A member of the RNA family "tRNA" from Lachnotalea sp. AF33-28, 71 nucleotides long. The match comes from Rfam's covariance-model search (73 bits). Rfam classes the family as a transfer RNA. Its family is annotated with triplet codon-amino acid adaptor activity in the Gene Ontology. The source organism's lineage runs through Bacteria, Bacillati, Bacillota, Clostridia and Lachnotalea.
RNA sequence: GCAAAUGUAGUUCAAUGGCAGAACACCAGCUUCCCAAGCUGGAUACGCGGGUUCGAUUCCCGUCAUUUGCU
Number, nucleotide and partner (000 for none) at each position: 001g070002c069003a068004a067005a066006u065007g064008u000009a000010g024011u023012u022013c021014a000015a000016u000017g000018g000019c000020a000021g013022a012023a011024c010025a000026c042027c041028a040029g039030c038031u000032u000033c000034c000035c000036a000037a000038g030039c029040u028041g027042g026043a000044u000045a000046c000047g063048c062049g061050g060051g059052u000053u000054c000055g000056a000057u000058u000059c051060c050061c049062g048063u047064c007065a006066u005067u004068u003069g002070c001071u000